[Rfam]
RNA: mir-302 microRNA precursor family
Organism: Hipposideros armiger
RNA sequence: CUGCCACUUCAACAUGGAGGCAUUUGCUGGGACCAGAACAAGUAAGUGCUUCCAUGUUGUGGUGUGG
Numbered sequence: 001c002u003g004c005c006a007c008u009u010c011a012a013c014a015u016g017g018a019g020g021c022a023u024u025u026g027c028u029g030g031g032a033c034c035a036g037a038a039c040a041a042g043u044a045a046g047u048g049c050u051u052c053c054a055u056g057u058u059g060u061g062g063u064g065u066g067g
Stems, first nucleotide, its partner, number of pairs: 002067001005064004010059019